[Rfam]
RNA sequence: UUGCGCAAGCGAUGUUUAAUUGAGCAAUCUUAGCAAUCAUCUGUCGCCGGUCCAGGCUUAUUCUUAUCACCAAGAUCACUGCUCGGACAAACAGUCCAAUGCAGCCCGCCCAAGCAGGCCGGCUGCGGUCGCGGCACCCACCGGUGCCUGGUAGCCAGACAGGCCACUCAUGACCCCCGAGCUGCAUGCUGUCCAGAAGACGGUGUGAGGUGAGCCGACGCCACAAGCGUCGAGCACGGACGAAGUUCUCAAGGGGAGGCCGACGGGUCUCCCU
Numbered sequence: 001u002u003g004c005g006c007a008a009g010c011g012a013u014g015u016u017u018a019a020u021u022g023a024g025c026a027a028u029c030u031u032a033g034c035a036a037u038c039a040u041c042u043g044u045c046g047c048c049g050g051u052c053c054a055g056g057c058u059u060a061u062u063c064u065u066a067u068c069a070c071c072a073a074g075a076u077c078a079c080u081g082c083u084c085g086g087a088c089a090a091a092c093a094g095u096c097c098a099a100u101g102c103a104g105c106c107c108g109c110c111c112a113a114g115c116a117g118g119c120c121g122g123c124u125g126c127g128g129u130c131g132c133g134g135c136a137c138c139c140a141c142c143g144g145u146g147c148c149u150g151g152u153a154g155c156c157a158g159a160c161a162g163g164c165c166a167c168u169c170a171u172g173a174c175c176c177c178c179g180a181g182c183u184g185c186a187u188g189c190u191g192u193c194c195a196g197a198a199g200a201c202g203g204u205g206u207g208a209g210g211u212g213a214g215c216c217g218a219c220g221c222c223a224c225a226a227g228c229g230u231c232g233a234g235c236a237c238g239g240a241c242g243a244a245g246u247u248c249u250c251a252a253g254g255g256g257a258g259g260c261c262g263a264c265g266g267g268u269c270u271c272c273c274u
Stems, first nucleotide, its partner, number of pairs: 001012004043057003076213005081182004085097004101126005108119003127175005185207003189203005214235002216232006253274004258269004

The family of this 274-nucleotide RNA sequence from Pseudomonas corrugata is "Pseudomonas sRNA P24". On this family, see Livny et al., Nucleic Acids Res 2006: "Identification of 17 Pseudomonas aeruginosa sRNAs and prediction of sRNA-encoding genes in 10 diverse pathogens using the bioinformatic tool sRNAPredict2". It scores 222 bits against the family's covariance model. Rfam describes the family as follows. This small RNA (sRNA) was computationally identified in the genome of the opportunistic pathogen Pseudomonas aeruginosa and its expression verified by Northern blot analysis. The base pairs follow the family's consensus structure, which was predicted with RNAalifold. The family's RNA type in Rfam is non-coding RNA gene.